[Rfam]
RNA sequence: AAUAAAGUCUUUUUGAUUUGUCGUAUAUGCUUUCUGGAAGGUGAAAGCGUUUCUACCCGAUGGCCUAUCCAUCGGACUACGAGGAACCAAAACCAAAGC
Numbered sequence: 001a002a003u004a005a006a007g008u009c010u011u012u013u014u015g016a017u018u019u020g021u022c023g024u025a026u027a028u029g030c031u032u033u034c035u036g037g038a039a040g041g042u043g044a045a046a047g048c049g050u051u052u053c054u055a056c057c058c059g060a061u062g063g064c065c066u067a068u069c070c071a072u073c074g075g076a077c078u079a080c081g082a083g084g085a086a087c088c089a090a091a092a093c094c095a096a097a098g099c
Stems, first nucleotide, its partner, number of pairs: 018085002021082005029048006057075007